The record is a 227-nucleotide RNA from Novibacillus thermophilus, which matches "T-box leader" in Rfam. The match comes from Rfam's covariance-model search (118 bits).
RNA sequence: AGACAAGCUUUGAAGGGGAGGAGUACACAGCGAAAGCUUUAAGAGAGGUUGGCGCGUGGGCUGAGACGCCGACUAAGCGGACACUGUGGAACGUCGUCCCGGAGCUGCCAACCUGAACGCCGCGGCGAGUAAGGUUGGCCGGUCGCAGGCCGUUAUCCGAUCGAGGGCACAAGUGUGCGACUUGUGAACGAAAGGUGGUACCGCGGAAACAGUCUUCCGUCCUUUAU
Numbered sequence: 001a002g003a004c005a006a007g008c009u010u011u012g013a014a015g016g017g018g019a020g021g022a023g024u025a026c027a028c029a030g031c032g033a034a035a036g037c038u039u040u041a042a043g044a045g046a047g048g049u050u051g052g053c054g055c056g057u058g059g060g061c062u063g064a065g066a067c068g069c070c071g072a073c074u075a076a077g078c079g080g081a082c083a084c085u086g087u088g089g090a091a092c093g094u095c096g097u098c099c100c101g102g103a104g105c106u107g108c109c110a111a112c113c114u115g116a117a118c119g120c121c122g123c124g125g126c127g128a129g130u131a132a133g134g135u136u137g138g139c140c141g142g143u144c145g146c147a148g149g150c151c152g153u154u155a156u157c158c159g160a161u162c163g164a165g166g167g168c169a170c171a172a173g174u175g176u177g178c179g180a181c182u183u184g185u186g187a188a189c190g191a192a193a194g195g196u197g198g199u200a201c202c203g204c205g206g207a208a209a210c211a212g213u214c215u216u217c218c219g220u221c222c223u224u225u226a227u
Stems, first nucleotide, its partner, number of pairs: 007105002015100004026088005037077003047074008108138007140152003168186007192224004203220005